[Rfam]
RNA sequence: GAGCAUCAUGUUGGCACUUGAAAAGUUUUGGAUUUUGGAGCAUUUCAGAUUUCAGAUUUUCAGAUUAGGGAUGCUC
Number, nucleotide and partner (000 for none) at each position: 001g076002a075003g074004c073005a072006u071007c070008a000009u000010g000011u068012u067013g066014g065015c000016a000017c000018u063019u062020g061021a060022a059023a058024a057025g000026u000027u056028u055029u054030g053031g052032a051033u000034u049035u048036u047037g046038g045039a044040g000041c000042a000043u000044u039045u038046c037047a036048g035049a034050u000051u032052u031053c030054a029055g028056a027057u024058u023059u022060u021061c020062a019063g018064a000065u014066u013067a012068g011069g000070g007071a006072u005073g004074c003075u002076c001

The family of this 76-nucleotide RNA sequence from Propithecus coquereli is "mir-1290 microRNA precursor family".
The source organism's lineage runs through Eukaryota, Eumetazoa, Craniata, Euteleostomi and Propithecus.
It scores 88 bits against the family's covariance model.